MIR8024 microRNA precursor family: an 86-nucleotide sequence from Solanum tuberosum. Taxonomically the source falls in Solanum (Eukaryota, Embryophyta, Pentapetalae, Solanaceae).

RNA sequence: UUGAAGAAUAUGAAGACUUCAACUUGCAGACUUGAAGAAUUUGUAGACUUUAACUUGCAUACUUAGAAAUUUUAGAGACUUCAAGU
Number, nucleotide and partner (000 for none) at each position: 001u084002u083003g082004a081005a080006g079007a000008a000009u076010a000011u074012g073013a072014a071015g000016a000017c000018u067019u066020c000021a064022a000023c000024u000025u059026g058027c057028a056029g000030a000031c000032u053033u052034g051035a050036a049037g048038a000039a000040u000041u000042u000043g000044u000045a000046g000047a000048c037049u036050u035051u034052a033053a032054c000055u000056u028057g027058c026059a025060u000061a000062c000063u000064u021065a000066g019067a018068a000069a000070u000071u014072u013073u012074a011075g000076a009077g000078a000079c006080u005081u004082c003083a002084a001085g000086u000